[Rfam]
The family of this 329-nucleotide RNA sequence from Melopsittacus undulatus is "7SK RNA".
On this family, see Wassarman and Steitz, Mol Cell Biol 1991: "Structural analyses of the 7SK ribonucleoprotein (RNP), the most abundant human small RNP of unknown function".
The match comes from Rfam's covariance-model search (292 bits).
The family is grouped with related families in Rfam's "7SK clan".
About the family: 7SK was discovered as an abundant small nuclear RNA in the mid-70s but a possible function has only recently been suggested. Two independent studies have found that 7SK RNA binds the CDK9/cyclin T complex (known as elongation factor P-TEFb).
RNA sequence: GGAUGUGAGGGCAAUCUGGCUGCAACAUCUGUCACCCCAUUGAUCACCAGGGUUGAUUUGGCUGAUCUGGCUGGCUAGGCGGCUGUCCCCUUCCUCCCUCACUGCUCCAUGUGCAUCCCUCCCAAAGCUGCGUGCCUGGUUGAAAAGGAUGACCAUCCCUGAUACAGGCGGUAUCGUUCAUCAGUCACAGGUAUUUUGUAGCUGCACUCCCCUGAUAGAACCUCCAAACAAGAUCAAGGUCCAGUUGUAGGAGAACGUAGGGUAGUUGAGCUUCCAAGACUGCAGACAUAUCCAAGUGACGUGCUGCACAUGGCAGUCUGCCAUUCUUU
Dot-bracket structure: (((.(((((((..(...((.....(((.(((((.(((((..((((.((...........))..)))))))..))...))))).)))..)).)...)))))))...))).......(((((.(((..((.....)).)))(((....(((......))).)))...))).)).............................(((...((.(((((.......((((..((((.............)))).))))....))))).))...)))......................(((.(..(((((((.....)))))..))..)..)))